[Rfam]
RNA sequence: CCCGGGGCGGUGCCCCGGGCUAUCCUAUCCCACCCCUUCGGGGUG
Numbered sequence: 001c002c003c004g005g006g007g008c009g010g011u012g013c014c015c016c017g018g019g020c021u022a023u024c025c026u027a028u029c030c031c032a033c034c035c036c037u038u039c040g041g042g043g044u045g
Stems, first nucleotide, its partner, number of pairs: 001019008032044005